The family of this 130-nucleotide sequence is "RAGATH-36 RNA". Rfam's curators put it in the seed alignment.
RNA sequence: UGGCACGGUACGAUUCCGUGGGGCGGGCUUCCCGCCUAACGCUUAGUCCCCAUAAUGGCGAAGGUAAGUGAGGAGGCGUCCAAAAUCUGAAAGCUGUUAUGGGGCGUGGCCGACUACGAGAGUGCCGGGG
Numbered sequence: 001u002g003g004c005a006c007g008g009u010a011c012g013a014u015u016c017c018g019u020g021g022g023g024c025g026g027g028c029u030u031c032c033c034g035c036c037u038a039a040c041g042c043u044u045a046g047u048c049c050c051c052a053u054a055a056u057g058g059c060g061a062a063g064g065u066a067a068g069u070g071a072g073g074a075g076g077c078g079u080c081c082a083a084a085a086u087c088u089g090a091a092a093g094c095u096g097u098u099a100u101g102g103g104g105c106g107u108g109g110c111c112g113a114c115u116a117c118g119a120g121a122g123u124g125c126c127g128g129g130g
Stems, first nucleotide, its partner, number of pairs: 004020005021037006048104007057095003062088003072081003111127002114124001116123002
Dot-bracket structure: ...(((((.......)))))((((((.....))))))..........(((((((..(((..(((.......(((....)))....)))....)))..)))))))......((.(.((....))).))...